[Rfam]
RNA sequence: ACUGGGAGUUUGGCGUCUCCUGUAAUCCAGCUGCUUGGAGGUCGGGUUUAGUGGAUGGUUUGAGGUCGGGAGUUCUGGUCCAGGGCGUUUCGUGUUGACCGGGUGUCCACACUAAGCAUGGCGUUAAUAUGGGCGUCCUGGGGGAGCCUGGGACGGCCAGGUUGAGCAAAGAGGAGCGAAUCGGGCCAGGGGGGAAACCCAGCAGCCAAAAGUCCCCGCGCCGUGCAGUAGUGGGAUCGCGCCUGGGAGUGGGAACCCUGGACUAGCCCGAUCAAAAUAACUAGACCUGGGCCUUU
Numbered sequence: 001a002c003u004g005g006g007a008g009u010u011u012g013g014c015g016u017c018u019c020c021u022g023u024a025a026u027c028c029a030g031c032u033g034c035u036u037g038g039a040g041g042u043c044g045g046g047u048u049u050a051g052u053g054g055a056u057g058g059u060u061u062g063a064g065g066u067c068g069g070g071a072g073u074u075c076u077g078g079u080c081c082a083g084g085g086c087g088u089u090u091c092g093u094g095u096u097g098a099c100c101g102g103g104u105g106u107c108c109a110c111a112c113u114a115a116g117c118a119u120g121g122c123g124u125u126a127a128u129a130u131g132g133g134c135g136u137c138c139u140g141g142g143g144g145a146g147c148c149u150g151g152g153a154c155g156g157c158c159a160g161g162u163u164g165a166g167c168a169a170a171g172a173g174g175a176g177c178g179a180a181u182c183g184g185g186c187c188a189g190g191g192g193g194g195a196a197a198c199c200c201a202g203c204a205g206c207c208a209a210a211a212g213u214c215c216c217c218g219c220g221c222c223g224u225g226c227a228g229u230a231g232u233g234g235g236a237u238c239g240c241g242c243c244u245g246g247g248a249g250u251g252g253g254a255a256c257c258c259u260g261g262a263c264u265a266g267c268c269c270g271a272u273c274a275a276a277a278u279a280a281c282u283a284g285a286c287c288u289g290g291g292c293c294u295u296u
Stems, first nucleotide, its partner, number of pairs: 001042003004021005010015001026039003044294008056283005064273007075266011089253005095247001099246008107235002110233005116226009125164004130159003134155009173216002176213002184207003191200003
Record summary: A member of the RNA family "Metazoan signal recognition particle RNA" from Dendroctonus ponderosae, 296 nucleotides long. The source organism's lineage runs through Eukaryota, Bilateria, Pterygota, Endopterygota and Dendroctonus. It is annotated as a non-coding RNA gene. On this family, see Wild et al., Curr Opin Struct Biol 2002: "Towards the structure of the mammalian signal recognition particle". The signal recognition particle (SRP) is a universally conserved ribonucleoprotein.